[Rfam]
RNA sequence: UGGGUGUGGAGAGAGCAGCGCGCCUGAAGAAUGGCUCCUCUGUGUAGAACACAUCCAAACAGCAACGUGGGCUUACUCCUCACGGGUGGCAGAAUUCUGUGGCCUUCUGUGACAUUAUGCCCUAUCCAU
Numbered sequence: 001u002g003g004g005u006g007u008g009g010a011g012a013g014a015g016c017a018g019c020g021c022g023c024c025u026g027a028a029g030a031a032u033g034g035c036u037c038c039u040c041u042g043u044g045u046a047g048a049a050c051a052c053a054u055c056c057a058a059a060c061a062g063c064a065a066c067g068u069g070g071g072c073u074u075a076c077u078c079c080u081c082a083c084g085g086g087u088g089g090c091a092g093a094a095u096u097c098u099g100u101g102g103c104c105u106u107c108u109g110u111g112a113c114a115u116u117a118u119g120c121c122c123u124a125u126c127c128a129u
Stems, first nucleotide, its partner, number of pairs: 002056007013045001015043004020038001022035003069122004077114001081111002084105003089100004
A member of the RNA family "Small nucleolar RNA SNORA11" from Pipistrellus kuhlii, 129 nucleotides long. It scores 56 bits against the family's covariance model. It is annotated as an H/ACA-box small nucleolar RNA. Pairs were carried over by alignment from the consensus structure, which was predicted with RNAalifold. U107 (SNORA11) is a member of the H/ACA class of snoRNAs that guide the sites of modification of uridines to pseudouridines. This snoRNA was identified by RT-PCR from blood cells and its expression confirmed by Northern blot analysis. There is no predicted target for this guide snRNA. A reference for the family is Gu et al. (2005), "A novel experimental approach for systematic identification of box H/ACA snoRNAs from eukaryotes", Nucleic Acids Res.